[Rfam]
RNA sequence: GCCGAGCUCAGUAAUGUGGGCUUGUAACCCAAAUGGGGGCAUUAAUGUGGUGGAUGUUGGGCUGUCUCAGAUGGUUGGACUUGGUGGGCUAGCAGCCCUAUCCAAGCACUGAGUUGGAUCAGGGGAUCCUGAUCGAAGGAAUGGGCUUCUUGAUUCCUAAAGUGGGGUGGACUGCGCGAGGCUGGUUUCACAGAGCAACGAACAGCUCCCACUCUGUGCAGUGGAAGGACAACAGGCUAGAGUCUGUCAAGUUCAGUAACACGCCUGAUGGGCUGCUCCAAUUAAACCACCACUUUU
Numbered sequence: 001g002c003c004g005a006g007c008u009c010a011g012u013a014a015u016g017u018g019g020g021c022u023u024g025u026a027a028c029c030c031a032a033a034u035g036g037g038g039g040c041a042u043u044a045a046u047g048u049g050g051u052g053g054a055u056g057u058u059g060g061g062c063u064g065u066c067u068c069a070g071a072u073g074g075u076u077g078g079a080c081u082u083g084g085u086g087g088g089c090u091a092g093c094a095g096c097c098c099u100a101u102c103c104a105a106g107c108a109c110u111g112a113g114u115u116g117g118a119u120c121a122g123g124g125g126a127u128c129c130u131g132a133u134c135g136a137a138g139g140a141a142u143g144g145g146c147u148u149c150u151u152g153a154u155u156c157c158u159a160a161a162g163u164g165g166g167g168u169g170g171a172c173u174g175c176g177c178g179a180g181g182c183u184g185g186u187u188u189c190a191c192a193g194a195g196c197a198a199c200g201a202a203c204a205g206c207u208c209c210c211a212c213u214c215u216g217u218g219c220a221g222u223g224g225a226a227g228g229a230c231a232a233c234a235g236g237c238u239a240g241a242g243u244c245u246g247u248c249a250a251g252u253u254c255a256g257u258a259a260c261a262c263g264c265c266u267g268a269u270g271g272g273c274u275g276c277u278c279c280a281a282u283u284a285a286a287c288c289a290c291c292a293c294u295u296u297u
Stems, first nucleotide, its partner, number of pairs: 001040003004023007028037003044296002047293007055284002057281003060277003064273002067271003073265003077254008086245003089240004093235001095233001097228002101225004106219004111214004116156006123150004128145004133140002157162001164209005173202001175200002182193003

This 297-nucleotide RNA from Capsicum annuum belongs to the Rfam family "Plant signal recognition particle RNA". The family's consensus secondary structure is taken from published work. The match comes from Rfam's covariance-model search (214 bits). For this family Rfam cites "Towards the structure of the mammalian signal recognition particle" (Wild et al., Curr Opin Struct Biol, 2002). The family's RNA type in Rfam is non-coding RNA gene.